A member of the RNA family "Plastid-psbA-3 3UTR RNA", 58 nucleotides long. Rfam's curators put it in the seed alignment. On this family, see Richter et al., Plant Commun 2023: "Retrograde signaling in plants: A critical review focusing on the GUN pathway and beyond". From the family's description: Plastid psbA-3 is a non-coding RNA (ncRNA) present in plastids. It was identified in inverted repeat sequences in the 3 prime untranslate region (3UTR) of photosystem II quinone-binding protein (psbA). The family's RNA type in Rfam is cis-regulatory element. The base pairs follow the family's consensus structure, which was predicted with LocARNA.
[Rfam]
RNA sequence: AACGGAGCAAUAACCCCCCCUCUUGUUCAAGCAAAAGGGCGUUAUUGUUCCCCCUGUU
Numbered sequence: 001a002a003c004g005g006a007g008c009a010a011u012a013a014c015c016c017c018c019c020c021u022c023u024u025g026u027u028c029a030a031g032c033a034a035a036a037g038g039g040c041g042u043u044a045u046u047g048u049u050c051c052c053c054c055u056g057u058u
Base pairs, nucleotide, nucleotide: 004051005050006049007048008047009046010045011044012043013042014041020037021036023034024033025032